This 81-nucleotide RNA sequence from Caviibacterium pharyngocola belongs to the Rfam family "antisense RNA of dnaA mRNA".
[Rfam]
RNA sequence: GCGCGCUUUCGGAUUGCCGGCAAGAAUGCCGUUGCCCACCGCGUGCAGCAAGUGGGUUUUUCCUAAUCCGGUGCCGCCGUA
Numbered sequence: 001g002c003g004c005g006c007u008u009u010c011g012g013a014u015u016g017c018c019g020g021c022a023a024g025a026a027u028g029c030c031g032u033u034g035c036c037c038a039c040c041g042c043g044u045g046c047a048g049c050a051a052g053u054g055g056g057u058u059u060u061u062c063c064u065a066a067u068c069c070g071g072u073g074c075c076g077c078c079g080u081a
Base pairs, nucleotide, nucleotide: 004043005042006041009038011036012035016032017031020029021028052077053076054075056074057073062071063070
Gene Ontology term of the family: regulation of mRNA stability.